[Rfam]
This 96-nucleotide sequence from Gracilibacillus halotolerans belongs to the Rfam family "c-di-GMP-I riboswitch aptamer".
Gene Ontology term of the family: cyclic-di-GMP binding.
The base pairs follow the family's consensus structure, which is taken from published work.
RNA sequence: UUUAGAAAAAGGCAAACUAUUUGAAAAGAUAGGACGCAAAGCCUAGGGUCUAAGGGUAAAGUAUAUAUUAUUACCUAUGACCGCCUGGCCGCCAAG
Numbered sequence: 001u002u003u004a005g006a007a008a009a010a011g012g013c014a015a016a017c018u019a020u021u022u023g024a025a026a027a028g029a030u031a032g033g034a035c036g037c038a039a040a041g042c043c044u045a046g047g048g049u050c051u052a053a054g055g056g057u058a059a060a061g062u063a064u065a066u067a068u069u070a071u072u073a074c075c076u077a078u079g080a081c082c083g084c085c086u087g088g089c090c091g092c093c094a095a096g
Stems, first nucleotide, its partner, number of pairs: 012037002017032006041089003045086003048081003055075004